The family of this 101-nucleotide RNA sequence from Carnegiea gigantea is "Plant small nucleolar RNA R71". It is annotated as a C/D-box small nucleolar RNA. Taxonomically the source falls in Carnegiea (Eukaryota, Streptophyta, Euphyllophyta, Magnoliopsida). The family's consensus secondary structure was predicted with PFOLD. The literature on the family includes a 2003 paper in Trends Plant Sci by Brown et al., "Plant snoRNAs: functional evolution and new modes of gene expression". A search with the family's covariance model found it, with a score of 46 bits. Gene Ontology terms of the family: RNA processing and nucleolus.

RNA sequence: AGACCAUGGUGAGGGCAUAAAAGGUCCUUGAAUUGCUCCCAGGCUUUAUAGAGCUUCUUAUCUUCCUUUUGAAAGAAAGUAGUGAUUUGAUUCUGCAAUCU
Numbered sequence: 001a002g003a004c005c006a007u008g009g010u011g012a013g014g015g016c017a018u019a020a021a022a023g024g025u026c027c028u029u030g031a032a033u034u035g036c037u038c039c040c041a042g043g044c045u046u047u048a049u050a051g052a053g054c055u056u057c058u059u060a061u062c063u064u065c066c067u068u069u070u071g072a073a074a075g076a077a078a079g080u081a082g083u084g085a086u087u088u089g090a091u092u093c094u095g096c097a098a099u100c101u
Stems, first nucleotide, its partner, number of pairs: 001101001003099001005095002051068002